[Rfam]
RNA sequence: GGGGGCGUUCUUGGAUUCGACGGGGAUUGCGAGGCUCGAGGUGCAUGUCGAGAAUGAGAGAAUCUCGUUAAAUACUUUCAAAACUUAUAGUUGCAAACGACGACAACUACGCUUUAGCGGCUUAAUUCCCGCUUUCGCUUACCUAGAUUUGUCUGUGGGUUUACCGUAAGCGACAUUAACACAGAAUCGCUGGUUAACGCGUCCGCUGUUAAUCGGUUAAAUUAAGCGGAAUCGCUUGUAAAAUGCCUGAGCGUUGGCUGUUUAUGAGUUAAACCUAAUUAACUGCUCUAAACAUGUAGUACCAAAAGUUAAGGAUUCGCGGACGGGGGUUCAAAUCCCCCCGCCUCCACCA
Numbered sequence: 001g002g003g004g005g006c007g008u009u010c011u012u013g014g015a016u017u018c019g020a021c022g023g024g025g026a027u028u029g030c031g032a033g034g035c036u037c038g039a040g041g042u043g044c045a046u047g048u049c050g051a052g053a054a055u056g057a058g059a060g061a062a063u064c065u066c067g068u069u070a071a072a073u074a075c076u077u078u079c080a081a082a083a084c085u086u087a088u089a090g091u092u093g094c095a096a097a098c099g100a101c102g103a104c105a106a107c108u109a110c111g112c113u114u115u116a117g118c119g120g121c122u123u124a125a126u127u128c129c130c131g132c133u134u135u136c137g138c139u140u141a142c143c144u145a146g147a148u149u150u151g152u153c154u155g156u157g158g159g160u161u162u163a164c165c166g167u168a169a170g171c172g173a174c175a176u177u178a179a180c181a182c183a184g185a186a187u188c189g190c191u192g193g194u195u196a197a198c199g200c201g202u203c204c205g206c207u208g209u210u211a212a213u214c215g216g217u218u219a220a221a222u223u224a225a226g227c228g229g230a231a232u233c234g235c236u237u238g239u240a241a242a243a244u245g246c247c248u249g250a251g252c253g254u255u256g257g258c259u260g261u262u263u264a265u266g267a268g269u270u271a272a273a274c275c276u277a278a279u280u281a282a283c284u285g286c287u288c289u290a291a292a293c294a295u296g297u298a299g300u301a302c303c304a305a306a307a308g309u310u311a312a313g314g315a316u317u318c319g320c321g322g323a324c325g326g327g328g329g330u331u332c333a334a335a336u337c338c339c340c341c342c343g344c345c346u347c348c349a350c351c352a
Stems, first nucleotide, its partner, number of pairs: 001348007021321002024318005034309003040303003044296005049067005055080006115131001117129001119127002136172006144163004152185006187219001189217006202230004234269009245258003249288004253283003325341005

This 352-nucleotide RNA sequence from Dichelobacter nodosus belongs to the Rfam family "transfer-messenger RNA". A reference for the family is Williams (2002), "The tmRNA Website: invasion by an intron", Nucleic Acids Res. The family's consensus secondary structure is taken from published work. The sequence is in the family's curated seed alignment. Lineage of the source: Bacteria > Gammaproteobacteria > Cardiobacteriales > Cardiobacteriaceae > Dichelobacter nodosus. Rfam's curators write: Bacterial tmRNA, also known as 10Sa RNA or SsrA, is named for its dual tRNA and mRNA-like properties. Its role is to liberate the mRNA from a stalled ribosome. To accomplish this part of the tmRNA is used as a reading frame that ends in a translation stop signal. The broken mRNA is replaced in the ribosome by the tmRNA and translation of the tmRNA leads to addition of a proteolysis tag to the incomplete protein enabling recognition by a protease.